[Rfam]
RNA sequence: AAUCUUGCUUGACGCAUUGAUCCGCCAGUCUCUAUUCGGGCGUCAUGAGACGGUGGGGAGCGGAGUGACGCGACCGGCAAGCGACAAG
Number, nucleotide and partner (000 for none) at each position: 001a000002a000003u086004c000005u084006u083007g082008c081009u080010u079011g078012a000013c062014g061015c060016a000017u000018u000019g000020a000021u000022c056023c055024g054025c053026c052027a000028g051029u050030c049031u000032c000033u000034a000035u000036u000037c000038g075039g074040g071041c070042g069043u068044c067045a000046u000047g000048a000049g030050a029051c028052g026053g025054u024055g023056g022057g000058g000059a000060g015061c014062g013063g000064a000065g000066u000067g044068a043069c042070g041071c040072g000073a000074c039075c038076g000077g000078c011079a010080a009081g008082c007083g006084a005085c000086a003087a000088g000

Record summary: The family of this 88-nucleotide RNA is "c-di-GMP-II-GAG riboswitch aptamer". The base pairs follow the family's consensus structure, which is taken from published work. For this family Rfam cites "Bioinformatic analysis of riboswitch structures uncovers variant classes with altered ligand specificity" (Weinberg et al., Proc Natl Acad Sci U S A, 2017). Rfam links the family to the GO terms regulation of gene expression and cyclic-di-GMP binding.